[Rfam]
RNA sequence: CAUCCAAUGCAAACUGCUCUCAAACCGAGACCUAUAGGCAGUAUAAUACUUCGUCUCUAAUAUCCACUAGUGAAGGGAUUGGUGGAAAUAAAGUAUCGC
Numbered sequence: 001c002a003u004c005c006a007a008u009g010c011a012a013a014c015u016g017c018u019c020u021c022a023a024a025c026c027g028a029g030a031c032c033u034a035u036a037g038g039c040a041g042u043a044u045a046a047u048a049c050u051u052c053g054u055c056u057c058u059a060a061u062a063u064c065c066a067c068u069a070g071u072g073a074a075g076g077g078a079u080u081g082g083u084g085g086a087a088a089u090a091a092a093g094u095a096u097c098g099c
Base pairs, nucleotide, nucleotide: 013042014041015040016039017038019037020036027057028056029055030054031053064085065084066083067082068081069080070079
RNA: PhotoRC-II RNA